[Rfam]
RNA sequence: AUGAUGGGGUGGGGAGAGCGCGGCACACCGCCGCCGCCGAAGGGGCAGCGCAGUGAUCUCUCAGGCAGAAGGACCGGCCCCGGACG
Numbered sequence: 001a002u003g004a005u006g007g008g009g010u011g012g013g014g015a016g017a018g019c020g021c022g023g024c025a026c027a028c029c030g031c032c033g034c035c036g037c038c039g040a041a042g043g044g045g046c047a048g049c050g051c052a053g054u055g056a057u058c059u060c061u062c063a064g065g066c067a068g069a070a071g072g073a074c075c076g077g078c079c080c081c082g083g084a085c086g
Stems, first nucleotide, its partner, number of pairs: 006081005012075002020034004036066003039062002043060003050054001
Rfam assigns this 86-nucleotide RNA sequence from Flavonifractor plautii to the family "Glycine riboswitch aptamer". The source organism's lineage runs through Bacteria, Bacillati, Eubacteriales, Oscillospiraceae and Flavonifractor plautii. The pairing is the family consensus, mapped onto this sequence.